[Rfam]
Shown here is a 104-nucleotide RNA sequence from Flavobacterium indicum, a member of the family "6S-Flavo RNA". It is annotated as a small RNA. It scores 85 bits against the family's covariance model. Lineage of the source: Bacteria > Pseudomonadati > Flavobacteriia > Flavobacterium > Flavobacterium indicum.
RNA sequence: ACUCAACACUAACUAUUAAAAGAGUAAAUCUGCACUACUAAAGCAUGUUACUUCGUGUAAAUCCUUGAACAGUGCGCUAGCUCAAAUCCUGUUUAUACGAGUUU
Numbered sequence: 001a002c003u004c005a006a007c008a009c010u011a012a013c014u015a016u017u018a019a020a021a022g023a024g025u026a027a028a029u030c031u032g033c034a035c036u037a038c039u040a041a042a043g044c045a046u047g048u049u050a051c052u053u054c055g056u057g058u059a060a061a062u063c064c065u066u067g068a069a070c071a072g073u074g075c076g077c078u079a080g081c082u083c084a085a086a087u088c089c090u091g092u093u094u095a096u097a098c099g100a101g102u103u104u
Stems, first nucleotide, its partner, number of pairs: 022083004032075005041066003048060004